[Rfam]
The record is a 129-nucleotide sequence from Brevibacillus fluminis, which matches "PyrR binding site" in Rfam.
Rfam links the family to the GO terms pyrimidine nucleobase transport and pyrimidine nucleobase biosynthetic process.
Taxonomically the source falls in Brevibacillus (Bacteria, Bacillati, Bacilli, Caryophanales).
By type it is a cis-regulatory element.
RNA sequence: UGAACCUUUAAAUCCAGUCCUGUGAGGCUGGCAAGGGCUUCGGAUAUGGAAAAGAAGGCUGCAGCCGCCGGCUGUCUGCCUAUUUUCCGCAAGCGAGCUUCUUGUCAGGUGGACAAGAAGCUUUUUCUU
Number, nucleotide and partner (000 for none) at each position: 001u000002g000003a000004a000005c036006c035007u034008u033009u000010a000011a000012a000013u000014c031015c030016a029017g028018u027019c026020c000021u000022g000023u000024g000025a000026g019027g018028c017029u016030g015031g014032c000033a008034a007035g006036g005037g000038c000039u000040u000041c000042g000043g000044a000045u000046a000047u000048g000049g084050a083051a000052a081053a000054g079055a000056a077057g076058g075059c000060u000061g000062c000063a000064g000065c000066c000067g000068c000069c000070g000071g000072c000073u000074g000075u058076c057077u056078g000079c054080c000081u052082a000083u050084u049085u000086u000087c000088c000089g000090c000091a000092a000093g000094c000095g123096a122097g121098c120099u119100u118101c117102u116103u115104g114105u113106c112107a000108g000109g000110u000111g000112g106113a105114c104115a103116a102117g101118a100119a099120g098121c097122u096123u095124u000125u000126u000127c000128u000129u000